[Rfam]
Shown here is a 72-nucleotide RNA sequence from Cnephaeus nilssonii, a member of the family "mir-9209 microRNA precursor family". A search with the family's covariance model found it, with a score of 99 bits. NCBI's taxonomy places the organism under Eukaryota, Eumetazoa, Sarcopterygii, Dipnotetrapodomorpha, Cnephaeus.
RNA sequence: AGAACAGUGGUCGGCAAACCGCGGCUCGCAAGCCAUAUGUGGCUUGCGAGCCGCGGUUUGCCGCUCUGUUGA
Numbered sequence: 001a002g003a004a005c006a007g008u009g010g011u012c013g014g015c016a017a018a019c020c021g022c023g024g025c026u027c028g029c030a031a032g033c034c035a036u037a038u039g040u041g042g043c044u045u046g047c048g049a050g051c052c053g054c055g056g057u058u059u060g061c062c063g064c065u066c067u068g069u070u071g072a
Base pairs, nucleotide, nucleotide: 003070004069005068006067007066009065010064012063013062014061015060016059017058018057019056020055021054022053023052024051025050026049027048028047029046031044032043033042034041